[Rfam]
RNA sequence: GACGAUAAGAGCACACCUUCCGAAAGGAUGGGCCGCAAAGUCACGGGUCUAAAGCGAUUUGCCAGGAUUGCCGGACUGCCGAAA
Dot-bracket structure: ..((......((...((.(((....))).))..[))..((((.((((((................))).])))))))..))...

Shown here is an 84-nucleotide RNA from Syntrophobotulus glycolicus, a member of the family "c-di-GMP-I-GGC riboswitch aptamer". The match comes from Rfam's covariance-model search (61 bits). Taxonomically the source falls in Syntrophobotulus glycolicus (Bacteria, Bacillati, Bacillota, Clostridia). Pairs were carried over by alignment from the consensus structure, which is taken from published work.